RNA sequence: CGUAAGGCGACGACGAGGAGUAGUACGCGAACCUCACAGAUUCGAGAGAGCCGGCGGGUGGUGCAAGCCGGUCUGUGUAUCGCCGAACUCGCCUCCGAGCCGAAUCCGUGAACCUCGAGUAAUGGAUUCCGCUUCGCCCUCGUAAGGGGCCAAUGAAGGGUGAUGGAUGACCACAGGUCAUUCGUUGCCGAACCAGGGUGGUACCACGAAGCGCACGAAGCCUUCGUCCCUGAC
Numbered sequence: 001c002g003u004a005a006g007g008c009g010a011c012g013a014c015g016a017g018g019a020g021u022a023g024u025a026c027g028c029g030a031a032c033c034u035c036a037c038a039g040a041u042u043c044g045a046g047a048g049a050g051c052c053g054g055c056g057g058g059u060g061g062u063g064c065a066a067g068c069c070g071g072u073c074u075g076u077g078u079a080u081c082g083c084c085g086a087a088c089u090c091g092c093c094u095c096c097g098a099g100c101c102g103a104a105u106c107c108g109u110g111a112a113c114c115u116c117g118a119g120u121a122a123u124g125g126a127u128u129c130c131g132c133u134u135c136g137c138c139c140u141c142g143u144a145a146g147g148g149g150c151c152a153a154u155g156a157a158g159g160g161u162g163a164u165g166g167a168u169g170a171c172c173a174c175a176g177g178u179c180a181u182u183c184g185u186u187g188c189c190g191a192a193c194c195a196g197g198g199u200g201g202u203a204c205c206a207c208g209a210a211g212c213g214c215a216c217g218a219a220g221c222c223u224u225c226g227u228c229c230c231u232g233a234c
Base pairs, nucleotide, nucleotide: 007100008099015095016094017093018092027083028082029081030080040074050072051071052070053069054068055067103128104127105126106125107124108123109122130142131141159189160188161187162186163185164184165183166182167181168180169179170178171177195231196230197229198228206227207226208225209224210223